Streptococcus sRNA 10: a 110-nucleotide sequence from Streptococcus zalophi. The organism belongs to Streptococcus, within Bacteria.

RNA sequence: AUCAAGGGAGUAGCAGACGGUUUAACCGUGAUAUGGUCGUCAAUCCGAAAGAAAUUUCCGGCCAUAUCUUAAACAGCGAGACUUGUUUUGAGAAAAACAGGUCUUUUUCU
Number, nucleotide and partner (000 for none) at each position: 001a000002u000003c000004a000005a029006g000007g027008g026009a000010g000011u024012a023013g021014c020015a000016g000017a000018c000019g000020g014021u013022u000023u012024a011025a000026c008027c007028g000029u005030g068031a067032u066033a065034u064035g063036g062037u061038c060039g059040u000041c000042a057043a056044u000045c000046c051047g000048a000049a000050a000051g046052a000053a000054a000055u000056u043057u042058c000059c039060g038061g037062c036063c035064a034065u033066a032067u031068c030069u000070u000071a000072a000073a000074c000075a000076g000077c000078g105079a104080g103081a102082c101083u100084u099085g098086u097087u096088u095089u094090g000091a000092g000093a000094a089095a088096a087097a086098c085099a084100g083101g082102u081103c080104u079105u078106u000107u000108u000109c000110u000

The base pairs follow the family's consensus structure, which was predicted with RNAfold.
A search with the family's covariance model found it, with a score of 86 bits.